The record is a 304-nucleotide RNA sequence from Ipomoea nil, which matches "Plant signal recognition particle RNA" in Rfam. Its family is annotated with SRP-dependent cotranslational protein targeting to membrane, signal sequence recognition and signal recognition particle, endoplasmic reticulum targeting in the Gene Ontology. By type it is a non-coding RNA gene. It scores 208 bits against the family's covariance model. Taxonomically the source falls in Ipomoea (Eukaryota, Euphyllophyta, Mesangiospermae, asterids).
[Rfam]
RNA sequence: GCUGGGCUUGGUAGUGUGAGUCUGUAACCCAAGUGGGAGUAUUAAGAUGGUGGAAUAAUUGGGUUUACCUUGAAGGUUGGGCUUGAGGUGUUAUCUACUGGCUUGCCUAUUCCAAGUGAUGAGUCCGGCCGUGGAGUCUCUGCGAAGGCGGAGGCCUCACAUCCUUUAGACCGGAGGGCACCGCGUCAGGCUGGUUUCACAGAGCAGCGAACACCUCCUCCUCUUUGCAGUGGAAGGACAACAGGUCGGGGCAUCUUCAGUCCGCUAGCGCCCGAUUGGUUGUCCGAAUUAAACCACCAUCUUU
Numbered sequence: 001g002c003u004g005g006g007c008u009u010g011g012u013a014g015u016g017u018g019a020g021u022c023u024g025u026a027a028c029c030c031a032a033g034u035g036g037g038a039g040u041a042u043u044a045a046g047a048u049g050g051u052g053g054a055a056u057a058a059u060u061g062g063g064u065u066u067a068c069c070u071u072g073a074a075g076g077u078u079g080g081g082c083u084u085g086a087g088g089u090g091u092u093a094u095c096u097a098c099u100g101g102c103u104u105g106c107c108u109a110u111u112c113c114a115a116g117u118g119a120u121g122a123g124u125c126c127g128g129c130c131g132u133g134g135a136g137u138c139u140c141u142g143c144g145a146a147g148g149c150g151g152a153g154g155c156c157u158c159a160c161a162u163c164c165u166u167u168a169g170a171c172c173g174g175a176g177g178g179c180a181c182c183g184c185g186u187c188a189g190g191c192u193g194g195u196u197u198c199a200c201a202g203a204g205c206a207g208c209g210a211a212c213a214c215c216u217c218c219u220c221c222u223c224u225u226u227g228c229a230g231u232g233g234a235a236g237g238a239c240a241a242c243a244g245g246u247c248g249g250g251g252c253a254u255c256u257u258c259a260g261u262c263c264g265c266u267a268g269c270g271c272c273c274g275a276u277u278g279g280u281u282g283u284c285c286g287a288a289u290u291a292a293a294c295c296a297c298c299a300u301c302u303u304u
Stems, first nucleotide, its partner, number of pairs: 001040003004023007028037003044303010056291002059288002062284003069278001075272003079263005085257002088255001089253002092251001098249008107237002110235005116228004121223003127164002131160004136155008173218005184209003191202003